[Rfam]
RNA sequence: GGUUGCUCAAAGUCACCCCUGUCUCUGACCACGGCUAUGGGUGACAUUUGGUGCCAGAGUCACCAGAAACCUCAGCUCACCUCCCAUUGCGUCAGUGUCAGGUGGUAAAUCCAGGACCCACUGAU
Numbered sequence: 001g002g003u004u005g006c007u008c009a010a011a012g013u014c015a016c017c018c019c020u021g022u023c024u025c026u027g028a029c030c031a032c033g034g035c036u037a038u039g040g041g042u043g044a045c046a047u048u049u050g051g052u053g054c055c056a057g058a059g060u061c062a063c064c065a066g067a068a069a070c071c072u073c074a075g076c077u078c079a080c081c082u083c084c085c086a087u088u089g090c091g092u093c094a095g096u097g098u099c100a101g102g103u104g105g106u107a108a109a110u111c112c113a114g115g116a117c118c119c120a121c122u123g124a125u
Base pairs, nucleotide, nucleotide: 005052006051007050009048010047013044014043015042016041021036023034024033066119070115071114072113077107079106080105081104086098087097